tRNA: a 73-nucleotide RNA from Mortierella sp. AM989. Rfam classes the family as a transfer RNA. Rfam describes the family as follows. Transfer RNA (tRNA) molecules are approximately 80 nucleotides in length. Gene Ontology term of the family: triplet codon-amino acid adaptor activity. The match comes from Rfam's covariance-model search (59 bits).
[Rfam]
RNA sequence: GCACUUGUAACUUAACUGGAAAAGUAUAGGUCUUCUAAGCUUAAUUAUAAUGGUUCGAAUCCAUUCGAGUGCU
Dot-bracket structure: (((((((..((((........)))).(((((.......))))).....(((((.......)))))))))))).
Numbered sequence: 001g002c003a004c005u006u007g008u009a010a011c012u013u014a015a016c017u018g019g020a021a022a023a024g025u026a027u028a029g030g031u032c033u034u035c036u037a038a039g040c041u042u043a044a045u046u047a048u049a050a051u052g053g054u055u056c057g058a059a060u061c062c063a064u065u066c067g068a069g070u071g072c073u
Stems, first nucleotide, its partner, number of pairs: 001072007010025004027043005049065005